[Rfam]
RNA: Small nucleolar RNA Z43
RNA sequence: UAACAAUGACGAUAUUGUAAUGGUCUCGUUCGUCGUAAUGGCUGUUAAUCAUGGCCUUGCCGACCACUCUAUAUAUCACCACCCAUAUUCUGAGUUU
Numbered sequence: 001u002a003a004c005a006a007u008g009a010c011g012a013u014a015u016u017g018u019a020a021u022g023g024u025c026u027c028g029u030u031c032g033u034c035g036u037a038a039u040g041g042c043u044g045u046u047a048a049u050c051a052u053g054g055c056c057u058u059g060c061c062g063a064c065c066a067c068u069c070u071a072u073a074u075a076u077c078a079c080c081a082c083c084c085a086u087a088u089u090c091u092g093a094g095u096u097u
Base pairs, nucleotide, nucleotide: 002096003095004094044057045053